Rfam assigns this 93-nucleotide RNA from Enterococcus sulfureus to the family "SAM-III riboswitch aptamer (SMK box)".
For this family Rfam cites "S-adenosylmethionine directly inhibits binding of 30S ribosomal subunits to the SMK box translational riboswitch RNA" (Fuchs et al., Proc Natl Acad Sci U S A, 2007).

RNA sequence: AAACGUUGCAAGUUCCCGAAAGGAUUCGCAUAUAAACUUAUGAAAAGCGAAGAUGCCUUGUAACCGAUACUUAAACUAGGGGGAAUUAUUUUG
Numbered sequence: 001a002a003a004c005g006u007u008g009c010a011a012g013u014u015c016c017c018g019a020a021a022g023g024a025u026u027c028g029c030a031u032a033u034a035a036a037c038u039u040a041u042g043a044a045a046a047g048c049g050a051a052g053a054u055g056c057c058u059u060g061u062a063a064c065c066g067a068u069a070c071u072u073a074a075a076c077u078a079g080g081g082g083g084a085a086u087u088a089u090u091u092u093g
Stems, first nucleotide, its partner, number of pairs: 013085005020059004025051005064080002
The base pairs follow the family's consensus structure, which is taken from published work.